[Rfam]
RNA sequence: CCGCACGAUGUCUCCCGGGCUUCUCUGAUUAAUGCAUGACGUGAAAGCCCCAAUACAUGUGCCAAAUCGGCGCCGUUCGUGUUGCAGUUUUGCUUCAUUUUUUUGGCUAAUCUGUGUCUAAACAACGGCAAAAUUU
Number, nucleotide and partner (000 for none) at each position: 001c000002c000003g062004c061005a060006c059007g058008a000009u000010g056011u055012c000013u000014c000015c000016c000017g050018g049019g048020c047021u046022u044023c043024u000025c041026u000027g000028a000029u000030u000031a000032a000033u000034g000035c000036a000037u000038g000039a000040c000041g025042u000043g023044a022045a000046a021047g020048c019049c018050c017051c000052a000053a000054u000055a011056c010057a000058u007059g006060u005061g004062c003063c000064a000065a000066a000067u000068c000069g000070g000071c000072g129073c128074c127075g126076u125077u124078c000079g000080u000081g118082u000083u116084g115085c114086a113087g112088u000089u000090u000091u000092g107093c106094u105095u000096c000097a000098u000099u000100u000101u000102u000103u000104u000105g094106g093107c092108u000109a000110a000111u000112c087113u086114g085115u084116g083117u000118c081119u000120a000121a000122a000123c000124a077125a076126c075127g074128g073129c072130a000131a000132a000133a000134u000135u000136u000
RNA: small nucleolar RNA snoR134
Organism: Phaseolus vulgaris